[Rfam]
RNA sequence: GCCGGAGUGGUGAAAUUGGUAGACGCAGCGGACUCAAAAUCCGCCGCCGCAAGGCGUGCCGGUUCGAUUCCGGCCUCCGGCA
Numbered sequence: 001g002c003c004g005g006a007g008u009g010g011u012g013a014a015a016u017u018g019g020u021a022g023a024c025g026c027a028g029c030g031g032a033c034u035c036a037a038a039a040u041c042c043g044c045c046g047c048c049g050c051a052a053g054g055c056g057u058g059c060c061g062g063u064u065c066g067a068u069u070c071c072g073g074c075c076u077c078c079g080g081c082a
Stems, first nucleotide, its partner, number of pairs: 001081007010026003028044005058074005
Dot-bracket structure: (((((((..(((...........))).(((((.......))))).............(((((.......)))))))))))).
RNA: tRNA
Organism: Vandammella animalimorsus